[Rfam]
RNA sequence: AUCACGCGGACGUCAGGCAAAAUCAUAAUGCCGCCCGAAUUCGGCCCAUCCCCCGCCGUGCUGGGCUGCGAUCAAAAGGAAACUGCGUUGACCCGGUCCUUUCGGCACCGGAUUCCUCAGCCCCCAGCCCCCCGGGGUCGUCAGGAUCGGGUCUAACUCUUCGCAGUAAACUGGAUCCCCAAUCCUUCGGCCGGCGCAAGCUGGCCGUUUU
Numbered sequence: 001a002u003c004a005c006g007c008g009g010a011c012g013u014c015a016g017g018c019a020a021a022a023u024c025a026u027a028a029u030g031c032c033g034c035c036c037g038a039a040u041u042c043g044g045c046c047c048a049u050c051c052c053c054c055g056c057c058g059u060g061c062u063g064g065g066c067u068g069c070g071a072u073c074a075a076a077a078g079g080a081a082a083c084u085g086c087g088u089u090g091a092c093c094c095g096g097u098c099c100u101u102u103c104g105g106c107a108c109c110g111g112a113u114u115c116c117u118c119a120g121c122c123c124c125c126a127g128c129c130c131c132c133c134g135g136g137g138u139c140g141u142c143a144g145g146a147u148c149g150g151g152u153c154u155a156a157c158u159c160u161u162c163g164c165a166g167u168a169a170a171c172u173g174g175a176u177c178c179c180c181a182a183u184c185c186u187u188c189g190g191c192c193g194g195c196g197c198a199a200g201c202u203g204g205c206c207g208u209u210u211u
Base pairs, nucleotide, nucleotide: 036174082167083166084165085164086163087162090153091152092151093150094149095148096147097146098145099144100143103140104139105138106137108135109134110133111132120128121127188207189206190205191204192203193202194201195200
Bradyrhizobiaceae sRNA BjrC174: a 211-nucleotide RNA sequence from Afipia broomeae. The pairing is the family consensus, mapped onto this sequence. It is annotated as a small RNA. The literature on the family includes a 2012 paper in RNA Biol by Madhugiri et al., "Small RNAs of the Bradyrhizobium/Rhodopseudomonas lineage and their analysis".